A member of the RNA family "Group II catalytic intron D1-D4-1" from Sporomusa sphaeroides, 77 nucleotides long. Pairs were carried over by alignment from the consensus structure.

RNA sequence: AAACAUGGUUGAAACAAGAUUAAUCGUGAGAAGUCAGCCGAGGCCAUAGUACUGGAAGUUUUUUUUUCAGGAAGGGC
Numbered sequence: 001a002a003a004c005a006u007g008g009u010u011g012a013a014a015c016a017a018g019a020u021u022a023a024u025c026g027u028g029a030g031a032a033g034u035c036a037g038c039c040g041a042g043g044c045c046a047u048a049g050u051a052c053u054g055g056a057a058g059u060u061u062u063u064u065u066u067u068c069a070g071g072a073a074g075g076g077c
Stems, first nucleotide, its partner, number of pairs: 001021002004018001006017001008015002034041002043077003052070006
Rfam describes the family as follows. Group II introns are found in rRNA, tRNA and mRNA of organelles in fungi, plants and protists, and also in mRNA in bacteria. Rfam 15.1 lists 2,508 matches to the family in 1,144 species. Taxonomically the source falls in Sporomusa sphaeroides (Bacteria, Bacillati, Bacillota, Negativicutes).